RNA sequence: UUGAACGUUUAUAGAAGAUGAAAAACUGCAACUGAGAUUAAAAUGGGAAUAUUUAUAAAAAGAAUAAAUCGAAUAGUAGUUCCAAGUGGUUUGCAUUUGGACAAAAAAUUAGACCGUAGUUUUAUGCUGC
Numbered sequence: 001u002u003g004a005a006c007g008u009u010u011a012u013a014g015a016a017g018a019u020g021a022a023a024a025a026c027u028g029c030a031a032c033u034g035a036g037a038u039u040a041a042a043a044u045g046g047g048a049a050u051a052u053u054u055a056u057a058a059a060a061a062g063a064a065u066a067a068a069u070c071g072a073a074u075a076g077u078a079g080u081u082c083c084a085a086g087u088g089g090u091u092u093g094c095a096u097u098u099g100g101a102c103a104a105a106a107a108a109u110u111a112g113a114c115c116g117u118a119g120u121u122u123u124a125u126g127c128u129g130c
Stems, first nucleotide, its partner, number of pairs: 006034002009031002012028003036123002043117004051065004079102002082100007